[Rfam]
RNA sequence: AGUUGCUCAUUCAGCUUCUUAUGUCGGCCCACAUUAGGUGGAGAAAUGCCACAUAAACUAUCGAAUGAUGCCAGAGUAAGGUGCCUACCGUCCAACUCAGUGAUAUCGCUUUCGAGCCUUAUCAAACAUCGGGCGACACGUGGAGUGAGGCACCACCUA
Number, nucleotide and partner (000 for none) at each position: 001a000002g000003u000004u000005g071006c070007u068008c067009a066010u065011u064012c063013a000014g000015c000016u000017u000018c000019u056020u055021a054022u053023g052024u051025c000026g050027g049028c048029c000030c000031a000032c000033a000034u000035u000036a000037g000038g000039u000040g000041g000042a000043g000044a000045a000046a000047u000048g028049c027050c026051a024052c023053a022054u021055a020056a019057a000058c000059u000060a000061u000062c000063g012064a011065a010066u009067g008068a007069u000070g006071c005072c000073a000074g000075a000076g000077u000078a000079a000080g154081g153082u152083g151084c150085c149086u148087a000088c000089c135090g134091u133092c132093c131094a000095a000096c000097u000098c000099a000100g000101u124102g123103a122104u121105a120106u000107c000108g000109c000110u000111u000112u000113c000114g000115a000116g000117c000118c000119u000120u105121a104122u103123c102124a101125a000126a000127c000128a000129u000130c000131g093132g092133g091134c090135g089136a000137c147138a146139c145140g000141u000142g000143g000144a000145g139146u138147g137148a086149g085150g084151c083152a082153c081154c080155a000156c000157c000158u000159a000